RNA sequence: AUUGCUCACUCUCCCUCAAGGACUUCCAGCGGUGCUAGUAAUAUGCAUGGCAAGGCUGGAGGUCCCCGGGGAGAGUGGUCAAUAU
Numbered sequence: 001a002u003u004g005c006u007c008a009c010u011c012u013c014c015c016u017c018a019a020g021g022a023c024u025u026c027c028a029g030c031g032g033u034g035c036u037a038g039u040a041a042u043a044u045g046c047a048u049g050g051c052a053a054g055g056c057u058g059g060a061g062g063u064c065c066c067c068g069g070g071g072a073g074a075g076u077g078g079u080c081a082a083u084a085u
Base pairs, nucleotide, nucleotide: 006078007077008076009075010074011073012072013071014070015069017068020065021064022063023062024061025060026059